[Rfam]
RNA: mir-9229 microRNA precursor family
Organism: Myotis myotis
RNA sequence: GAGACAUCCCUAUGGAGCAGGUCUUGCUUCAGUGGGGUUUUGGUGCUCACUGAGCCUGCCCCAUGAGUGCAUCACU
Numbered sequence: 001g002a003g004a005c006a007u008c009c010c011u012a013u014g015g016a017g018c019a020g021g022u023c024u025u026g027c028u029u030c031a032g033u034g035g036g037g038u039u040u041u042g043g044u045g046c047u048c049a050c051u052g053a054g055c056c057u058g059c060c061c062c063a064u065g066a067g068u069g070c071a072u073c074a075c076u
Stems, first nucleotide, its partner, number of pairs: 001075001003073002007069001009067001011065002014062002017059003021056001023054001029053008037044002